[Rfam]
RNA sequence: CGGGCGGACCGGGCCCCUCUGGCAAUCAUGCAAAUGAUCGCGAUGUCGGACCGCAUCG
Number, nucleotide and partner (000 for none) at each position: 001c000002g000003g000004g000005c000006g052007g051008a000009c049010c048011g047012g046013g000014c000015c000016c000017c000018u000019c000020u000021g000022g041023c040024a000025a038026u037027c036028a035029u034030g000031c000032a000033a000034a029035u028036g027037a026038u025039c000040g023041c022042g000043a000044u000045g000046u012047c011048g010049g009050a000051c007052c006053g000054c000055a000056u000057c000058g000
RNA: terC RNA
Organism: Sphingomonas xanthus